[Rfam]
RNA sequence: AUCCUUAUGCACGGGAAAUACGCAUAUCAGUGAGGAUUCGUCCGAGAUUGUGUUUUUGCUGGUUGAAAUUUAAUUAUAAACCAGACCGUCUCCUCAUGGUCAAUUCUGUGUUCGCUUUUGAACACUUCAGGACUAUGUAGGGAAUUUUUGGAAUACUUUUUUUUCGUUUACCGAUAUUCAUUCUUUCAAAGAAACUUUUCAUCUUUCUUUGGAAGU
Numbered sequence: 001a002u003c004c005u006u007a008u009g010c011a012c013g014g015g016a017a018a019u020a021c022g023c024a025u026a027u028c029a030g031u032g033a034g035g036a037u038u039c040g041u042c043c044g045a046g047a048u049u050g051u052g053u054u055u056u057u058g059c060u061g062g063u064u065g066a067a068a069u070u071u072a073a074u075u076a077u078a079a080a081c082c083a084g085a086c087c088g089u090c091u092c093c094u095c096a097u098g099g100u101c102a103a104u105u106c107u108g109u110g111u112u113c114g115c116u117u118u119u120g121a122a123c124a125c126u127u128c129a130g131g132a133c134u135a136u137g138u139a140g141g142g143a144a145u146u147u148u149u150g151g152a153a154u155a156c157u158u159u160u161u162u163u164u165c166g167u168u169u170a171c172c173g174a175u176a177u178u179c180a181u182u183c184u185u186u187c188a189a190a191g192a193a194a195c196u197u198u199u200c201a202u203c204u205u206u207c208u209u210u211g212g213a214a215g216u
Stems, first nucleotide, its partner, number of pairs: 020053005026048003034043003091142003095137007155216006
RNA: U4 spliceosomal RNA
Organism: Saccharomyces paradoxus